[Rfam]
RNA sequence: UUAAGCAGAACAUCGGCUAAGUUCGCGCCGUCCUGGCGCAACGCCGAUGGACUCGCAUCCUGCGAG
Numbered sequence: 001u002u003a004a005g006c007a008g009a010a011c012a013u014c015g016g017c018u019a020a021g022u023u024c025g026c027g028c029c030g031u032c033c034u035g036g037c038g039c040a041a042c043g044c045c046g047a048u049g050g051a052c053u054c055g056c057a058u059c060c061u062g063c064g065a066g
Stems, first nucleotide, its partner, number of pairs: 011049007025039005052066005

The record is a 66-nucleotide sequence from Bacillus sp. J14TS2, which matches "Bacillaceae-1 RNA" in Rfam. The family's RNA type in Rfam is small RNA. The organism belongs to Bacillus, within Bacteria.